[Rfam]
RNA: SAM-I/IV (S-adenosyl methionine) riboswitch aptamer
RNA sequence: UAACAACAUUAAGAGAGGUCAUUAGUGGCCCGGCAACCUAGGAUGGACACCCAAGGUGCUUCCCAGAAAUGGGGAUGUGGUACGAAAGUACAAGUAAUUGUCCCAACG
Numbered sequence: 001u002a003a004c005a006a007c008a009u010u011a012a013g014a015g016a017g018g019u020c021a022u023u024a025g026u027g028g029c030c031c032g033g034c035a036a037c038c039u040a041g042g043a044u045g046g047a048c049a050c051c052c053a054a055g056g057u058g059c060u061u062c063c064c065a066g067a068a069a070u071g072g073g074g075a076u077g078u079g080g081u082a083c084g085a086a087a088g089u090a091c092a093a094g095u096a097a098u099u100g101u102c103c104c105a106a107c108g
Base pairs, nucleotide, nucleotide: 006078007077008076009075010074015031017030018029019028020027021026032060033059034058037056038055039054041051042050045102046101080091081090082089083088